[Rfam]
RNA sequence: AGAGGUACAAUGAGGAUCCAAUUAGUAGUGGUAUUCAUGAGAUUUAAAUAUCGAUGAAUCCAAUCACUACUUCACUAGUCCUUUUCAUUCUGAGUGCAAC
Number, nucleotide and partner (000 for none) at each position: 001a000002g000003a000004g000005g097006u096007a095008c094009a000010a088011u087012g086013a085014g084015g000016a000017u000018c000019c000020a000021a000022u000023u000024a000025g000026u000027a000028g000029u000030g000031g000032u000033a000034u000035u000036c000037a000038u000039g000040a000041g000042a051043u050044u000045u000046a000047a000048a000049u000050a043051u042052c000053g000054a000055u000056g000057a000058a000059u000060c000061c000062a000063a000064u000065c000066a000067c000068u000069a000070c000071u000072u000073c000074a000075c000076u000077a000078g000079u000080c000081c000082u000083u000084u014085u013086c012087a011088u010089u000090c000091u000092g000093a000094g008095u007096g006097c005098a000099a000100c000
Shown here is a 100-nucleotide RNA sequence from Rosa chinensis, a member of the family "Small nucleolar RNA Z162".
Rfam 15.1 lists 146 matches to the family in 75 species.
For this family Rfam cites "The high diversity of snoRNAs in plants: identification and comparative study of 120 snoRNA genes from Oryza sativa" (Chen et al., Nucleic Acids Res, 2003).
Pairs were carried over by alignment from the consensus structure, which was predicted with PFOLD.
It is annotated as a C/D-box small nucleolar RNA.